[Rfam]
Nucleotides: 085
Base pairs, nucleotide, nucleotide: 012037013036017032018031019030020029021028022027040079041078042077043076045075047073048070050068051067052066053065054064
Number, partner (000 for none) and nucleotide at each position: 001000u002000u003000u004000c005000c006000g007000a008000a009000a010000g011000g012037g013036c014000a015000a016000a017032c018031c019030c020029c021028g022027g023000g024000c025000a026000a027022c028021c029020g030019g031018g032017g033000g034000a035000c036013g037012c038000a039000a040079a041078a042077c043076c044000a045075c046000a047073g048070g049000g050068c051067c052066c053065g054064g055000g056000c057000a058000u059000g060000a061000a062000c063000u064054c065053c066052g067051g068050g069000a070048c071000g072000g073047c074000c075045g076043g077042g078041u079040u080000g081000c082000c083000g084000a085000a
The family of this 85-nucleotide sequence from Desulforhabdus amnigena is "c-di-GMP-I riboswitch aptamer". The family's consensus secondary structure is taken from published work.